The family of this 364-nucleotide RNA sequence from Hyphobacterium sp. CCMP332 is "Alphaproteobacteria transfer-messenger RNA". Rfam links the family to the GO term RNA catabolic process. Bacterial tmRNA, also known as 10Sa RNA or SsrA, is named for its dual tRNA and mRNA-like properties.
RNA sequence: UCACUUCAAAUUCACGCCAAUCAUGCCUAUAUUGGCUUUGUCGGUUCGCCGACUAUGACGAUAAAUGGUGCGUGUAAUAACUGAACUGGACCCGGGUGCGAUUCCCGGCAGCUCCACCAAUUUCUCCCGGCACUUCGCUAACGUGCCGGAUUUACGGGGCUGAUCAGGAUCGACAGGCAGCUAAAGACGUAACUUUCGUUCGCGUGGGUACCGUUAAAUGCCCGUUUUAGUAGUUGCAAACGACAACUAUGCUGAAGAGGUCGCUCUCGCCGCGUAAUGCGGUGCGAGUAUCUCGCUUUAAAGUCCUGAGCCCAUAGCAAGCUCAGGCGGGGUCCGGAGGCGCCUGGCAACAGAAGCCUCCACU
Number, nucleotide and partner (000 for none) at each position: 001u000002c000003a000004c000005u000006u000007c000008a000009a000010a000011u000012u000013c000014a000015c000016g000017c000018c000019a000020a000021u000022c000023a000024u000025g000026c000027c000028u000029a000030u000031a000032u000033u000034g000035g000036c000037u000038u000039u000040g053041u052042c051043g050044g049045u000046u000047c000048g000049c044050c043051g042052a041053c040054u000055a000056u000057g200058a199059c198060g197061a196062u000063a000064a000065a000066u000067g193068g000069u191070g190071c189072g188073u187074g000075u000076a000077a000078u000079a000080a000081c000082u179083g178084a000085a000086c176087u175088g174089g000090a000091c000092c108093c107094g106095g105096g104097u000098g000099c000100g000101a000102u000103u000104c096105c095106c094107g093108g092109c162110a161111g160112c159113u158114c157115c156116a000117c000118c000119a000120a000121u000122u000123u000124c000125u000126c000127c000128c000129g000130g000131c000132a000133c000134u000135u000136c000137g000138c000139u000140a000141a000142c000143g000144u000145g000146c000147c000148g000149g000150a000151u000152u000153u000154a000155c000156g115157g114158g113159g112160c111161u110162g109163a000164u000165c000166a000167g000168g000169a000170u000171c000172g000173a000174c088175a087176g086177g000178c083179a082180g000181c000182u000183a000184a000185a000186g000187a073188c072189g071190u070191a069192a000193c067194u000195u000196u061197c060198g059199u058200u057201c213202g212203c000204g000205u000206g000207g223208g222209u000210a000211c000212c202213g201214u000215u000216a000217a000218a000219u000220g000221c000222c208223c207224g000225u000226u000227u000228u000229a000230g000231u000232a000233g000234u000235u000236g000237c000238a000239a000240a000241c000242g000243a000244c000245a000246a000247c000248u000249a000250u000251g000252c000253u000254g000255a000256a000257g000258a000259g000260g000261u000262c000263g000264c000265u000266c000267u000268c000269g000270c000271c000272g000273c000274g000275u000276a000277a000278u000279g000280c000281g000282g000283u000284g000285c000286g000287a000288g000289u000290a000291u000292c000293u000294c000295g000296c000297u000298u000299u000300a000301a000302a000303g000304u000305c000306c000307u000308g000309a000310g000311c000312c000313c000314a000315u000316a000317g000318c000319a000320a000321g000322c000323u000324c000325a000326g000327g000328c000329g000330g345331g344332g343333u342334c000335c000336g361337g360338a359339g358340g357341c356342g333343c332344c331345u330346g000347g000348c000349a000350a000351c000352a000353g000354a000355a000356g341357c340358c339359u338360c337361c336362a000363c000364u000